[Rfam]
RNA sequence: GCCUGCGGGACGUCGGCUAAAUGCGGCCACGUCCUGUGGCCAACGCCGACACUAGCACGUCCUGUGCG
Numbered sequence: 001g002c003c004u005g006c007g008g009g010a011c012g013u014c015g016g017c018u019a020a021a022u023g024c025g026g027c028c029a030c031g032u033c034c035u036g037u038g039g040c041c042a043a044c045g046c047c048g049a050c051a052c053u054a055g056c057a058c059g060u061c062c063u064g065u066g067c068g
Stems, first nucleotide, its partner, number of pairs: 012050006026040005055067004
RNA: Bacillaceae-1 RNA